[Rfam]
RNA sequence: CACCGGGCAAGCCACCUUGGCUGGUGUGGUCCAGAUAAGCCAGCUUGUUUACAUGCUUAUUCCAUU
Numbered sequence: 001c002a003c004c005g006g007g008c009a010a011g012c013c014a015c016c017u018u019g020g021c022u023g024g025u026g027u028g029g030u031c032c033a034g035a036u037a038a039g040c041c042a043g044c045u046u047g048u049u050u051a052c053a054u055g056c057u058u059a060u061u062c063c064a065u066u
Stems, first nucleotide, its partner, number of pairs: 002065001005062003009058004014049001016047001019045007026032001
RNA: MAT2A 3'UTR stem loop F
Organism: Equus caballus